This 77-nucleotide sequence from Chelydra serpentina belongs to the Rfam family "Small nucleolar RNA SNORD102".
The organism belongs to Chelydra, within Eukaryota.

RNA sequence: AGCUUGAUGAUGACUGUCUCACGUGAUUGCUUUGGUAAUAGCAAAAUGAGCAAAUCAUUUCACCGGCACUGAAAGCA
Numbered sequence: 001a002g003c004u005u006g007a008u009g010a011u012g013a014c015u016g017u018c019u020c021a022c023g024u025g026a027u028u029g030c031u032u033u034g035g036u037a038a039u040a041g042c043a044a045a046a047u048g049a050g051c052a053a054a055u056c057a058u059u060u061c062a063c064c065g066g067c068a069c070u071g072a073a074a075g076c077a
Stems, first nucleotide, its partner, number of pairs: 002076004
Dot-bracket structure: .((((...................................................................)))).
Description:
Its family is annotated with RNA processing and nucleolus in the Gene Ontology. The family's consensus secondary structure was predicted with PFOLD. Rfam 15.1 lists 443 matches to the family in 430 species.